[Rfam]
RNA sequence: ACCCUCCGGUUCCCUUUCCCAUCGGAUCUGAACGCUGGUCUUGGUGGUCGUAAAAGGAGGAAAAGGAAAAGUGAAUCUGGCCCUGCAGUGCUUAUAGUCUGGUAUAUAGCUUGUGGGCUAGUUUCAAACAAGG
Numbered sequence: 001a002c003c004c005u006c007c008g009g010u011u012c013c014c015u016u017u018c019c020c021a022u023c024g025g026a027u028c029u030g031a032a033c034g035c036u037g038g039u040c041u042u043g044g045u046g047g048u049c050g051u052a053a054a055a056g057g058a059g060g061a062a063a064a065g066g067a068a069a070a071g072u073g074a075a076u077c078u079g080g081c082c083c084u085g086c087a088g089u090g091c092u093u094a095u096a097g098u099c100u101g102g103u104a105u106a107u108a109g110c111u112u113g114u115g116g117g118c119u120a121g122u123u124u125c126a127a128a129c130a131a132g133g
Stems, first nucleotide, its partner, number of pairs: 003060005019047005025040004077121007095109001
Rfam assigns this 133-nucleotide RNA from Canis lupus to the family "Small nucleolar RNA SNORA61".
Pairs were carried over by alignment from the consensus structure, which was predicted with PFOLD.
ACA61 is a member of the H/ACA class of snoRNA that guide the sites of modification of uridines to pseudouridines.
It is one of the family's seed sequences.
Lineage of the source: Eukaryota > Metazoa > Sarcopterygii > Tetrapoda > Canis lupus.